[Rfam]
RNA sequence: GGGCAGGAUGUGUGAAGUUAGCUAAUCGGCAAGCCGCUUAUCUAACUUCACCUCCCUUAUUCGCACUUUGUGCUCAACGGGCAUCCUGCUCUGCGAGGCU
Numbered sequence: 001g002g003g004c005a006g007g008a009u010g011u012g013u014g015a016a017g018u019u020a021g022c023u024a025a026u027c028g029g030c031a032a033g034c035c036g037c038u039u040a041u042c043u044a045a046c047u048u049c050a051c052c053u054c055c056c057u058u059a060u061u062c063g064c065a066c067u068u069u070g071u072g073c074u075c076a077a078c079g080g081g082c083a084u085c086c087u088g089c090u091c092u093g094c095g096a097g098g099c100u
Stems, first nucleotide, its partner, number of pairs: 001091009012051006019044003024039002027036003054081003063073004